[Rfam]
RNA sequence: CACGUGAUGUAGGUAGUUUCAUGUUGUUGGGGGUAUUUAUGGGACACUCAGCAACGUGGAACUGCCAAGAUUACGUC
Number, nucleotide and partner (000 for none) at each position: 001c000002a000003c075004g074005u073006g072007a071008u070009g000010u068011a000012g066013g065014u064015a063016g062017u061018u060019u059020c000021a000022u056023g055024u054025u053026g052027u051028u050029g049030g048031g047032g000033g000034u000035a000036u000037u000038u000039a000040u000041g000042g000043g000044a000045c000046a000047c031048u030049c029050a028051g027052c026053a025054a024055c023056g022057u000058g000059g019060a018061a017062c016063u015064g014065c013066c012067a000068a010069g000070a008071u007072u006073a005074c004075g003076u000077c000

Annotation: This 77-nucleotide RNA sequence from Eptatretus burgeri belongs to the Rfam family "mir-196 microRNA precursor family". The literature on the family includes a 2003 paper in RNA by Lagos-Quintana et al., "New microRNAs from mouse and human".